Rfam assigns this 98-nucleotide RNA sequence from Clostridium tarantellae to the family "Purine riboswitch aptamer".
RNA sequence: ACAAUAAUUAAAAAUAACGCUCGUAUAAGCUUUGAAUAUGGCAAGGCGUCUCUACCAGAAACCAUGAAUUUCUGUCUAUGAGUGGAUUUAAUAUAGGG
Dot-bracket structure: .................((((((((...((((((.......))))))........((((((.......))))))..))))))))..............
Numbered sequence: 001a002c003a004a005u006a007a008u009u010a011a012a013a014a015u016a017a018c019g020c021u022c023g024u025a026u027a028a029g030c031u032u033u034g035a036a037u038a039u040g041g042c043a044a045g046g047c048g049u050c051u052c053u054a055c056c057a058g059a060a061a062c063c064a065u066g067a068a069u070u071u072c073u074g075u076c077u078a079u080g081a082g083u084g085g086a087u088u089u090a091a092u093a094u095a096g097g098g
Stems, first nucleotide, its partner, number of pairs: 018084008029047006056074006
The family's consensus secondary structure is taken from published work.